[Rfam]
A member of the RNA family "7SK RNA" from Jacana jacana, 324 nucleotides long. Pairs were carried over by alignment from the consensus structure, which is taken from published work. Rfam describes the family as follows. 7SK was discovered as an abundant small nuclear RNA in the mid-70s but a possible function has only recently been suggested. Two independent studies have found that 7SK RNA binds the CDK9/cyclin T complex (known as elongation factor P-TEFb). P-TEFb activates transcription by phosphorylating the C-terminal domain of RNA polymerase II. This process is negatively regulated by the 7SK RNP. The secondary structure of 7SK RNA shown here was proposed by Wasserman and Steitz on the basis of chemical modification and enzymatic cleavage experiments. This family contains a number of annotated pseudogenes and 7SK derived repeats. The threshold is artificially high to minimise the pseudogene count. A reference for the family is Blencowe (2002), "Transcription: surprising role for an elusive small nuclear RNA", Curr Biol. Rfam 15.1 lists 49,373 matches to the family in 668 species. Lineage of the source: Eukaryota > Craniata > Amniota > Charadriiformes > Jacana. Rfam classes the family as a non-coding RNA gene.
RNA sequence: GGAUGUGAGGGCGAUCUGGCUGCGACAUCUGUCACCCCAUUGAUCACCAGGGUUGAUUCGGCUGAUCUGGCUGGCUAGGCGGGUGUCCCCUUCCUCCCUCACCGCUCCAUGUGCGUCCCUCCCGAAGCUGCGUGCUCGGUUGAAGAGGACGACCUUCCCCGAUAGAGACGUACCGUUCAUCGGUCAAGGGUAUACGGUAGCUGCGCUCCCCUGCUAGAACCUCCAAACAAGCUCAAGAUUCUAUGUAGAUAAACAUAUGUUAAACACUACUUUUUUAUUGCAGAAGCAACCCCUAUUUUUAUCAUUUGGAUACAUUUCUUCUGU
Numbered sequence: 001g002g003a004u005g006u007g008a009g010g011g012c013g014a015u016c017u018g019g020c021u022g023c024g025a026c027a028u029c030u031g032u033c034a035c036c037c038c039a040u041u042g043a044u045c046a047c048c049a050g051g052g053u054u055g056a057u058u059c060g061g062c063u064g065a066u067c068u069g070g071c072u073g074g075c076u077a078g079g080c081g082g083g084u085g086u087c088c089c090c091u092u093c094c095u096c097c098c099u100c101a102c103c104g105c106u107c108c109a110u111g112u113g114c115g116u117c118c119c120u121c122c123c124g125a126a127g128c129u130g131c132g133u134g135c136u137c138g139g140u141u142g143a144a145g146a147g148g149a150c151g152a153c154c155u156u157c158c159c160c161g162a163u164a165g166a167g168a169c170g171u172a173c174c175g176u177u178c179a180u181c182g183g184u185c186a187a188g189g190g191u192a193u194a195c196g197g198u199a200g201c202u203g204c205g206c207u208c209c210c211c212u213g214c215u216a217g218a219a220c221c222u223c224c225a226a227a228c229a230a231g232c233u234c235a236a237g238a239u240u241c242u243a244u245g246u247a248g249a250u251a252a253a254c255a256u257a258u259g260u261u262a263a264a265c266a267c268u269a270c271u272u273u274u275u276u277a278u279u280g281c282a283g284a285a286g287c288a289a290c291c292c293c294u295a296u297u298u299u300u301a302u303c304a305u306u307u308g309g310a311u312a313c314a315u316u317u318c319u320u321c322u323g324u
Base pairs, nucleotide, nucleotide: 001108002107003106005102006101007100008099009098010097011096013093014092018090019089024087025086026085027084028083029082030081031080032079033078035074036073037070038069039068042067043066044065045064047061048060117170119167120166121165122139123138124137125136127135128134140162141161142160147158148157149156200265202263206259212257213256224248227246228245229244231242289324290323295319300312301311302310303309